[Rfam]
RNA sequence: AUACUUACCUGGCGGGGAGAUACCAUGAUCAUGAAGGUGGUUUUCCCAGGGUGAGGCUUAUCCAUUGCACUCCGGAUGUGCCGACCCCUGCGAUUUCCCCAAAUGUGGGAAACUCGACUGCAUCAUUUGCGGAAGAACACUAAAUAUUGUGGUUUU
Dot-bracket structure: ...........(((((((((.(((((..........)))))))))))((((.(.(((.(((((..........))))).)))..))))).((((((.((.......)).))).))).).))......................(.((....)).).
Rfam assigns this 156-nucleotide RNA from Callithrix jacchus to the family "U1 spliceosomal RNA". The family's consensus secondary structure is taken from published work. The match comes from Rfam's covariance-model search (121 bits). The organism belongs to Callithrix, within Eukaryota.